Shown here is a 74-nucleotide RNA from Rhodnius prolixus, a member of the family "mir-12 microRNA precursor family". It scores 61 bits against the family's covariance model. Taxonomically the source falls in Rhodnius (Eukaryota, Ecdysozoa, Insecta, Paraneoptera). On this family, see Marco et al., Genome Biol Evol 2010: "Functional shifts in insect microRNA evolution". The family's consensus secondary structure was predicted with RNAalifold.
[Rfam]
RNA sequence: UGGUUGUGAGUAUUACAUCAGGUACUGAUUUUGUUCAGUUUAUAAUAUCGGUACCUGACUAAUACUCACAAUCA
Numbered sequence: 001u002g003g004u005u006g007u008g009a010g011u012a013u014u015a016c017a018u019c020a021g022g023u024a025c026u027g028a029u030u031u032u033g034u035u036c037a038g039u040u041u042a043u044a045a046u047a048u049c050g051g052u053a054c055c056u057g058a059c060u061a062a063u064a065c066u067c068a069c070a071a072u073c074a
Base pairs, nucleotide, nucleotide: 001074002073003072004071005070006069009066010065011064012063015060018057021055022054023053024052025051026050027049028048029047